[Rfam]
RNA sequence: UGGUAUAUGCACCCUAACUUGGUACCCUGACCCCGCAACGGGUUGGGGUAUUUUUUA
Numbered sequence: 001u002g003g004u005a006u007a008u009g010c011a012c013c014c015u016a017a018c019u020u021g022g023u024a025c026c027c028u029g030a031c032c033c034c035g036c037a038a039c040g041g042g043u044u045g046g047g048g049u050a051u052u053u054u055u056u057a
Base pairs, nucleotide, nucleotide: 002013003012004011024049025048026047027046028045029044030043031042032041033040
Overview: A member of the RNA family "Nitrogen stress-induced RNA 1" from Leptolyngbya sp. Cla-17, 57 nucleotides long. On this family, see Ionescu et al., J Mol Biol 2010: "Heterocyst-specific transcription of NsiR1, a non-coding RNA encoded in a tandem array of direct repeats in cyanobacteria". The match comes from Rfam's covariance-model search (40 bits). The base pairs follow the family's consensus structure.